A member of the RNA family "ffh sRNA" from Actibacterium pelagium, 53 nucleotides long. Lineage of the source: Bacteria > Pseudomonadati > Rhodobacterales > Roseobacteraceae > Actibacterium. On this family, see Meyer et al., BMC Genomics 2009: "Identification of candidate structured RNAs in the marine organism 'Candidatus Pelagibacter ubique'". The family's RNA type in Rfam is small RNA.

RNA sequence: CACAUGCAGGAUCGCCCCCCGUCAGCGAGGUUUCGCCCACGGGGGACAUUGGC
Numbered sequence: 001c002a003c004a005u006g007c008a009g010g011a012u013c014g015c016c017c018c019c020c021g022u023c024a025g026c027g028a029g030g031u032u033u034c035g036c037c038c039a040c041g042g043g044g045g046a047c048a049u050u051g052g053c
Base pairs, nucleotide, nucleotide: 016045017044018043019042020041021040022039025036026035027034028033